[Rfam]
RNA sequence: GGCGAUAAACGGAACGUGGAAUAAGCGUAGUGGACCCGGGGGCAGUACCCGGCGUCUCCACCAUAUACACCGGGGCUUUGCGGCUCAGGCAGAUGGGGACGAAACAGGCUCGACACGCGUGGUAAAGACCUUCCUUUUGCCCGGCAUUGUACCGCCGUUAUCGGGCUAAACUUACAAGUGCCAAUGAUAACACUGAGGUGCUCGCUGUUGCUGCAUAA
Dot-bracket structure: (((((........(.((........(((.(((...(((((.......)))))(((((((...................................)))))))............))))))........)).).....)))))((((........)))).............................................................
This 218-nucleotide sequence from Acetobacter sp. DmW_043 belongs to the Rfam family "permuted transfer-messenger RNA". Rfam classes the family as a non-coding RNA gene. Rfam links the family to the GO term RNA catabolic process. Rfam's curators write: Bacterial tmRNA, also known as 10Sa RNA or SsrA, is named for its dual tRNA and mRNA-like properties. Its role is to liberate the mRNA from a stalled ribosome.